[Rfam]
RNA sequence: GGCCGGGUAACGAGCAGUAAUACAAGACCCUUCGGGGGAAAGCUGCGGGCCGACUGUUGGCGGUGAUCAAAGUACCCGGCCGCCCUCUC
Dot-bracket structure: (((((((((....(((.(.........(((....)))....).)))..((((........))))........)))))))))........
Numbered sequence: 001g002g003c004c005g006g007g008u009a010a011c012g013a014g015c016a017g018u019a020a021u022a023c024a025a026g027a028c029c030c031u032u033c034g035g036g037g038g039a040a041a042g043c044u045g046c047g048g049g050c051c052g053a054c055u056g057u058u059g060g061c062g063g064u065g066a067u068c069a070a071a072g073u074a075c076c077c078g079g080c081c082g083c084c085c086u087c088u089c
Stems, first nucleotide, its partner, number of pairs: 001081009014046003018042001028037003049064004
sRNA-Xcc1: an 89-nucleotide RNA sequence from Oxalobacteraceae bacterium CAVE-383. Pairs were carried over by alignment from the consensus structure, which was predicted with RNAalifold. A search with the family's covariance model found it, with a score of 66 bits. On this family, see Chen et al., RNA Biol 2011: "sRNA-Xcc1, an integron-encoded transposon- and plasmid-transferred trans-acting sRNA, is under the positive control of the key virulence regulators HrpG and HrpX of Xanthomonas campestris pathovar campestris". Taxonomically the source falls in Oxalobacteraceae (Bacteria, Pseudomonadati, Pseudomonadota, Betaproteobacteria).